[Rfam]
RNA sequence: CUCGCAUCGAGAGCGGUGGAGGGAACUGGCCCCGAGAAACCGCGGCAACCGGCGGAGCACGUUUACGCGAGGUGCCAAGUCCAGCAGGACGGCCAUUACCGUUCUGGAAGAUGUGGG
Numbered sequence: 001c002u003c004g005c006a007u008c009g010a011g012a013g014c015g016g017u018g019g020a021g022g023g024a025a026c027u028g029g030c031c032c033c034g035a036g037a038a039a040c041c042g043c044g045g046c047a048a049c050c051g052g053c054g055g056a057g058c059a060c061g062u063u064u065a066c067g068c069g070a071g072g073u074g075c076c077a078a079g080u081c082c083a084g085c086a087g088g089a090c091g092g093c094c095a096u097u098a099c100c101g102u103u104c105u106g107g108a109a110g111a112u113g114u115g116g117g
Stems, first nucleotide, its partner, number of pairs: 001117008013043005021032003026084004044076004049072002052068003080109001085106008